[Rfam]
RNA sequence: CAUGCACAGGCAAUGGCACUGGAAGAAUUCACGGGUUUAUUUUAAAUUAUCCCGUGGUCUCUUAGUGGCAUCACUGGUGCUGG
Dot-bracket structure: ...((((.((..(((.((.((((.((..((((((.................))))))))).))).)).)))..)).))))...

A member of the RNA family "mir-263 microRNA precursor family" from Parnassius apollo, 83 nucleotides long. The family's consensus secondary structure was predicted with RNAalifold. Lineage of the source: Eukaryota > Metazoa > Pterygota > Papilionidae > Parnassius. A search with the family's covariance model found it, with a score of 77 bits. Its Rfam clan is "mir-182 clan". For this family Rfam cites "Direct sequencing and expression analysis of a large number of miRNAs in Aedes aegypti and a multi-species survey of novel mosquito miRNAs" (Li et al., BMC Genomics, 2009).